[Rfam]
RNA: Actino-pnp RNA
RNA sequence: ACCGGUCCUCGGUAGUGGCUUACGCAGUCGCCGGCGAUCCAUGGAGAUCGCCCGGUUGCGUGGGCUUCGAUCGAAGACCGGA
Numbered sequence: 001a002c003c004g005g006u007c008c009u010c011g012g013u014a015g016u017g018g019c020u021u022a023c024g025c026a027g028u029c030g031c032c033g034g035c036g037a038u039c040c041a042u043g044g045a046g047a048u049c050g051c052c053c054g055g056u057u058g059c060g061u062g063g064g065c066u067u068c069g070a071u072c073g074a075a076g077a078c079c080g081g082a
Base pairs, nucleotide, nucleotide: 002081003080004079005078006077007076009074010073011072012071013070017066018065019064020063021062022061023060024059025058026057027056028055029054